[Rfam]
RNA sequence: UCCUCGUUCAAAGAAUCGCAUUCAAAGCUCACACACAGAGAGAAAGUCGUCAUGACUCUUCUCUCUCUCCAUACCUAGCUUUGGGAGAAAGUCCCCGGACACCCUGACUGUUUAAACGUCCUCUUGCAGGGCCCAGUCAGGCAAUGCGGAAACGCGCCGCCAUAGAAGCAAUUCGAUAGCGGCUUAUACGCCCUAUUCCCCUCCCAGUGUUGUCUCCUGUACCCGAACACUCUGCCCCUUCGGGGUCUCUGUGGAAAACAAUGGUUGGUGCAGGGCAGUGCUGGAGAGGUGGGUUUUUAUUUGGGUUGCCUUUCGUCGUGUUUGGAUAGUCAUGCGAUUGCCCCCCAUUUUUAUUUCUCUUCUGGGUUUUCCGUUCAUCUGGAGGUGAAUGUGAACAGACCUUCUUUGGCUGAAAAGUCGGGAAGGAUUAGUUGGGAAAUUGGGGGGUACCUCAAUGGGGCUCAUUCUUGAGACGAGG
Numbered sequence: 001u002c003c004u005c006g007u008u009c010a011a012a013g014a015a016u017c018g019c020a021u022u023c024a025a026a027g028c029u030c031a032c033a034c035a036c037a038g039a040g041a042g043a044a045a046g047u048c049g050u051c052a053u054g055a056c057u058c059u060u061c062u063c064u065c066u067c068u069c070c071a072u073a074c075c076u077a078g079c080u081u082u083g084g085g086a087g088a089a090a091g092u093c094c095c096c097g098g099a100c101a102c103c104c105u106g107a108c109u110g111u112u113u114a115a116a117c118g119u120c121c122u123c124u125u126g127c128a129g130g131g132c133c134c135a136g137u138c139a140g141g142c143a144a145u146g147c148g149g150a151a152a153c154g155c156g157c158c159g160c161c162a163u164a165g166a167a168g169c170a171a172u173u174c175g176a177u178a179g180c181g182g183c184u185u186a187u188a189c190g191c192c193c194u195a196u197u198c199c200c201c202u203c204c205c206a207g208u209g210u211u212g213u214c215u216c217c218u219g220u221a222c223c224c225g226a227a228c229a230c231u232c233u234g235c236c237c238c239u240u241c242g243g244g245g246u247c248u249c250u251g252u253g254g255a256a257a258a259c260a261a262u263g264g265u266u267g268g269u270g271c272a273g274g275g276c277a278g279u280g281c282u283g284g285a286g287a288g289g290u291g292g293g294u295u296u297u298u299a300u301u302u303g304g305g306u307u308g309c310c311u312u313u314c315g316u317c318g319u320g321u322u323u324g325g326a327u328a329g330u331c332a333u334g335c336g337a338u339u340g341c342c343c344c345c346c347a348u349u350u351u352u353a354u355u356u357c358u359c360u361u362c363u364g365g366g367u368u369u370u371c372c373g374u375u376c377a378u379c380u381g382g383a384g385g386u387g388a389a390u391g392u393g394a395a396c397a398g399a400c401c402u403u404c405u406u407u408g409g410c411u412g413a414a415a416a417g418u419c420g421g422g423a424a425g426g427a428u429u430a431g432u433u434g435g436g437a438a439a440u441u442g443g444g445g446g447g448u449a450c451c452u453c454a455a456u457g458g459g460g461c462u463c464a465u466u467c468u469u470g471a472g473a474c475g476a477g478g
Stems, first nucleotide, its partner, number of pairs: 002478006008471004014339006022085001023083006038065007090462002093460004179194001181192003198308001203305005209300002212297001221294004341447006
Shown here is a 478-nucleotide RNA sequence from Aspergillus brasiliensis, a member of the family "RNase MRP". Rfam 15.1 lists 3,510 matches to the family in 2,315 species. The match comes from Rfam's covariance-model search (105 bits). It is annotated as a ribozyme.